RNA: Group II catalytic intron D1-D4-3
Organism: Dolosigranulum pigrum
RNA sequence: UCCAUCGUGAGGUGGAAUCUGAAGGAAGCCAGAGGCAAACACCUGCACUGACGAACAGAAAUCUCAUAAAGAAGGCCGGAUAGGUGUGGAUAAGCUUGCAAUACAAAGUGAAGUCCAAUACUGUACGAGCACCGUCAGGUAAAUGAGGCAGUGACAUGGGUGGAAGGUUGUCGCU
Numbered sequence: 001u002c003c004a005u006c007g008u009g010a011g012g013u014g015g016a017a018u019c020u021g022a023a024g025g026a027a028g029c030c031a032g033a034g035g036c037a038a039a040c041a042c043c044u045g046c047a048c049u050g051a052c053g054a055a056c057a058g059a060a061a062u063c064u065c066a067u068a069a070a071g072a073a074g075g076c077c078g079g080a081u082a083g084g085u086g087u088g089g090a091u092a093a094g095c096u097u098g099c100a101a102u103a104c105a106a107a108g109u110g111a112a113g114u115c116c117a118a119u120a121c122u123g124u125a126c127g128a129g130c131a132c133c134g135u136c137a138g139g140u141a142a143a144u145g146a147g148g149c150a151g152u153g154a155c156a157u158g159g160g161u162g163g164a165a166g167g168u169u170g171u172c173g174c175u
Stems, first nucleotide, its partner, number of pairs: 001016006028175001030173001032171001035168002040162006046153005062148006075140003079136003083133004088116004094109004